[Rfam]
RNA: Small nucleolar RNA R44/J54/Z268 family
RNA sequence: CGUGCACAUGAUGUGAAAGAUUAGGGACAUCAGUACCCUGUUUGGGUGAUGAUGAUAUGCUAAUAUGGGAAUCUCUCUGAUGCACC
Numbered sequence: 001c002g003u004g005c006a007c008a009u010g011a012u013g014u015g016a017a018a019g020a021u022u023a024g025g026g027a028c029a030u031c032a033g034u035a036c037c038c039u040g041u042u043u044g045g046g047u048g049a050u051g052a053u054g055a056u057a058u059g060c061u062a063a064u065a066u067g068g069g070a071a072u073c074u075c076u077c078u079g080a081u082g083c084a085c086c
Stems, first nucleotide, its partner, number of pairs: 002085005